[Rfam]
RNA: Bacteroidales-1 6S-Bacteroidales RNA suggested
RNA sequence: GGUUGUUCCGGUUCGAUCGGGAUACUCAUCAAAUAAUAUCGAAAACCGAGAAAGCUUCUCUUGUCAAUGGCGGGCCACAUAAACUUCGACGAAGCCAAGCUUUCGGGCCGGUGGAUUACAAAGACGGAGAGCGCUCAACUAUUGAAAUGCUCGGAGUUUCAUCACAUCAUCGGGCAACCCCUUUC
Dot-bracket structure: .....................................................(((.((.(((((..((.....((((....................(((....)))..))))....))..)))))))))).....................................................